[Rfam]
RNA sequence: GGCAACGGUGAUGAGUCAUACAGACCUGUAAUGAUGUGCGAAGAUGAUCGCAAUUCAUUAUGAACAUCUAAGGGACUGAGUUGUC
Numbered sequence: 001g002g003c004a005a006c007g008g009u010g011a012u013g014a015g016u017c018a019u020a021c022a023g024a025c026c027u028g029u030a031a032u033g034a035u036g037u038g039c040g041a042a043g044a045u046g047a048u049c050g051c052a053a054u055u056c057a058u059u060a061u062g063a064a065c066a067u068c069u070a071a072g073g074g075a076c077u078g079a080g081u082u083g084u085c
Stems, first nucleotide, its partner, number of pairs: 002084005
Shown here is an 85-nucleotide RNA from Daucus carota, a member of the family "Small nucleolar RNA SNORD25". On this family, see Qu et al., Nucleic Acids Res 2001: "Identification of 10 novel snoRNA gene clusters from Arabidopsis thaliana". Pairs were carried over by alignment from the consensus structure, which was predicted with PFOLD. Rfam 15.1 lists 985 matches to the family in 241 species. A search with the family's covariance model found it, with a score of 62 bits. Taxonomically the source falls in Daucus carota (Eukaryota, Embryophyta, campanulids, Apiales). Rfam links the family to the GO terms nucleolus and RNA processing.